[Rfam]
RNA sequence: CGAGUUGGCCGGGCGGCCGCGGCAGAGGGAACCGGACGCACCUUCGGGUGUGCCCAGGCCUUCGGCCGAGGAAAGUCCGGACUCCACAGAGCAGGGCGGUUGCUAACGGCAACCCGAGGUGACUCGCGGGACAGUGCCACAGAAAACAGACCGCCUCUCGCGGCCUUCGGGCCGUGGGAGGUGAGGGUGAAACGGUGCGGUAAGAGCGCACCAGCAUCCCGGGUGACCGGGAUGGCUAGGUAAACCCCGCCCGGAGCAAGGUUGAAGGCCGCAUCGACGUCUGGCGUCGGUGCGACUGCGCAGGUGUUCGAGGGCUGCUCGCCCGAGCCUGCGGGUGAACCGCUCGAGGUACCCGGCGACGGUGUGCCCAGAUGGAUGGUCGCCGCCCGACCUUUCGGUCGGGCACAGGAUCCGGCUUACACGCCAACUCGUCCG
Number, nucleotide and partner (000 for none) at each position: 001c431002g430003a429004g428005u427006u426007g425008g424009c423010c000011g420012g384013g383014c382015g381016g380017c379018c378019g000020c068021g067022g066023c065024a000025g063026a062027g061028g060029g000030a000031a000032c000033c000034g000035g000036a000037c000038g000039c000040a000041c000042c000043u000044u000045c000046g000047g000048g000049u000050g000051u000052g000053c000054c000055c000056a000057g000058g000059c000060c028061u027062u026063c025064g000065g023066c022067c021068g020069a000070g000071g000072a000073a418074a417075g416076u000077c415078c414079g413080g412081a411082c256083u255084c254085c253086a000087c000088a000089g320090a319091g318092c317093a000094g252095g251096g250097c249098g248099g113100u112101u111102g110103c109104u000105a000106a000107c000108g000109g103110c102111a101112a100113c099114c128115c126116g125117a124118g123119g000120u000121g000122a000123c118124u117125c116126g115127c000128g114129g247130g246131a000132c000133a000134g245135u244136g241137c240138c239139a000140c000141a000142g000143a000144a000145a000146a000147c000148a000149g000150a000151c186152c185153g182154c181155c180156u179157c178158u177159c176160g175161c174162g173163g172164c171165c170166u000167u000168c000169g000170g165171g164172c163173c162174g161175u160176g159177g158178g157179a156180g155181g154182u153183g000184a000185g152186g151187g000188u000189g000190a000191a000192a000193c000194g212195g211196u210197g209198c208199g207200g000201u000202a000203a000204g000205a000206g000207c199208g198209c197210a196211c195212c194213a000214g236215c234216a233217u232218c231219c230220c229221g228222g227223g000224u000225g000226a000227c222228c221229g220230g219231g218232a217233u216234g215235g000236c214237u000238a000239g138240g137241u136242a000243a000244a135245c134246c130247c129248c098249g097250c096251c095252c094253g085254g084255a083256g082257c000258a000259a000260g341261g340262u339263u338264g000265a000266a000267g000268g000269c000270c000271g000272c000273a000274u000275c000276g000277a000278c000279g000280u000281c000282u000283g000284g000285c000286g000287u000288c000289g000290g000291u000292g000293c000294g000295a000296c000297u000298g000299c000300g332301c331302a330303g329304g328305u327306g000307u000308u000309c000310g000311a000312g324313g323314g322315c321316u000317g092318c091319u090320c089321g315322c314323c313324c312325g000326a000327g305328c304329c303330u302331g301332c300333g000334g000335g000336u000337g000338a263339a262340c261341c260342g000343c000344u000345c000346g000347a000348g367349g000350u000351a000352c000353c362354c361355g360356g000357c000358g000359a000360c355361g354362g353363u000364g000365u000366g000367c348368c000369c000370a000371g000372a000373u000374g000375g000376a000377u000378g018379g017380u016381c015382g014383c013384c012385g000386c000387c000388c000389g000390a000391c000392c000393u000394u000395u000396c000397g000398g000399u000400c000401g000402g000403g000404c000405a000406c000407a000408g000409g000410a000411u081412c080413c079414g078415g077416c075417u074418u073419a000420c011421a000422c000423g009424c008425c007426a006427a005428c004429u003430c002431g001432u000433c000434c000435g000
Shown here is a 435-nucleotide sequence from Rhodococcus triatomae, a member of the family "Bacterial RNase P class A". The family's RNA type in Rfam is ribozyme. The organism belongs to Rhodococcus, within Bacteria. Ribonuclease P (RNase P) is a ubiquitous endoribonuclease, found in archaea, bacteria and eukarya as well as chloroplasts and mitochondria. A search with the family's covariance model found it, with a score of 264 bits.